[Rfam]
RNA sequence: GGAAUAUAAGAAACCGUCUCUUAACUUUUAACUAAAAAACUAAGAAUCGACUCUUAAAUUUUCUUAUUUAAGAGCUGGUUUUUAGUUUUUAGUUAAAAGUUAAGAGACGGUUUCUUAUAUUCC
Numbered sequence: 001g002g003a004a005u006a007u008a009a010g011a012a013a014c015c016g017u018c019u020c021u022u023a024a025c026u027u028u029u030a031a032c033u034a035a036a037a038a039a040c041u042a043a044g045a046a047u048c049g050a051c052u053c054u055u056a057a058a059u060u061u062u063c064u065u066a067u068u069u070a071a072g073a074g075c076u077g078g079u080u081u082u083u084a085g086u087u088u089u090u091a092g093u094u095a096a097a098a099g100u101u102a103a104g105a106g107a108c109g110g111u112u113u114c115u116u117a118u119a120u121u122c123c
Stems, first nucleotide, its partner, number of pairs: 001123037040085007
The family of this 123-nucleotide RNA from Brassica carinata is "MIR9563 microRNA precursor family".
The family has 2 seed sequences and 5,832 matches in Rfam 15.1.